[Rfam]
RNA sequence: CCAGAGGGUCGGGCGGCCGCGUCAUGUGCUUGGCACAUGCCGAGGAAAGUCCGGGCUCCGCGAAACGACGGUGCCGGGUAACGCCCGGCGGGGGUGACCCCAGGGACAGUGCCACAGAGAGCAGACCGCCGAUGGGCCGCGCGCGAGCGUGGCGACAGGCAAGGGUGAAAGGGUGCGGCAAAAGCGCACCGCGCCUCCGGUAACGGCAGGCGGCAUGGCAAACCCCACCGGGAGCAAGACCGAAUAGGGACGGCACAUGGGCAUCGUUUCUGCUCGUCGUCCGGGUUGGUUGCUUGAGGCGGCGUGCGAGCGUCGCCCUAGAGGAAUGGUCGCCUAUCCUUCGUAAAGAGGGUGGACAGAACCCGGCUUACAGACCCUCUGGUAUU
Numbered sequence: 001c002c003a004g005a006g007g008g009u010c011g012g013g014c015g016g017c018c019g020c021g022u023c024a025u026g027u028g029c030u031u032g033g034c035a036c037a038u039g040c041c042g043a044g045g046a047a048a049g050u051c052c053g054g055g056c057u058c059c060g061c062g063a064a065a066c067g068a069c070g071g072u073g074c075c076g077g078g079u080a081a082c083g084c085c086c087g088g089c090g091g092g093g094g095u096g097a098c099c100c101c102a103g104g105g106a107c108a109g110u111g112c113c114a115c116a117g118a119g120a121g122c123a124g125a126c127c128g129c130c131g132a133u134g135g136g137c138c139g140c141g142c143g144c145g146a147g148c149g150u151g152g153c154g155a156c157a158g159g160c161a162a163g164g165g166u167g168a169a170a171g172g173g174u175g176c177g178g179c180a181a182a183a184g185c186g187c188a189c190c191g192c193g194c195c196u197c198c199g200g201u202a203a204c205g206g207c208a209g210g211c212g213g214c215a216u217g218g219c220a221a222a223c224c225c226c227a228c229c230g231g232g233a234g235c236a237a238g239a240c241c242g243a244a245u246a247g248g249g250a251c252g253g254c255a256c257a258u259g260g261g262c263a264u265c266g267u268u269u270c271u272g273c274u275c276g277u278c279g280u281c282c283g284g285g286u287u288g289g290u291u292g293c294u295u296g297a298g299g300c301g302g303c304g305u306g307c308g309a310g311c312g313u314c315g316c317c318c319u320a321g322a323g324g325a326a327u328g329g330u331c332g333c334c335u336a337u338c339c340u341u342c343g344u345a346a347a348g349a350g351g352g353u354g355g356a357c358a359g360a361a362c363c364c365g366g367c368u369u370a371c372a373g374a375c376c377c378u379c380u381g382g383u384a385u386u
Base pairs, nucleotide, nucleotide: 001382002381003380004379005378006377007376008375009374010373011371012334013333014332015331016330017329018328020042021041023039024038025037026036027035028034047369048368049367051366052365053364054363055362056234057233058232059231064268065267066266067265069230070229071228072227073226074088075087076086077085078084089103090101091100092099093098104225105224109223110222111219112218113217126164127163128160129159130158133155135153172190173189174188175187176186177185191214192212193211194210195209196208197206198205199204238291239290240289241288248282249281250280251279252278253277259275260274261273262272263271298317299316300315301314302313303312304311305310
Dot-bracket structure: ((((((((((((((((((.((.((((((.....)))))).))....[[[.[[[[[((((....[[[[.((((((((((.....)))))(((((....)))).)((...(((((............(((((..(.(.................).)..)))..)).......((((((.......))))))(((((((((....))).))))).)..)))..)))))))))))))...((((......((((((.....(((((.]]]]..))))).)))))).....))))......((((((((....))))))))..........)))))))...........................]]]]]]]].).))))))))))....
Bacterial RNase P class A: a 386-nucleotide RNA sequence from Sphingomonas sp. NFR15. The organism belongs to Sphingomonas, within Bacteria. The base pairs follow the family's consensus structure, which is taken from published work. Rfam's curators write: Ribonuclease P (RNase P) is a ubiquitous endoribonuclease, found in archaea, bacteria and eukarya as well as chloroplasts and mitochondria.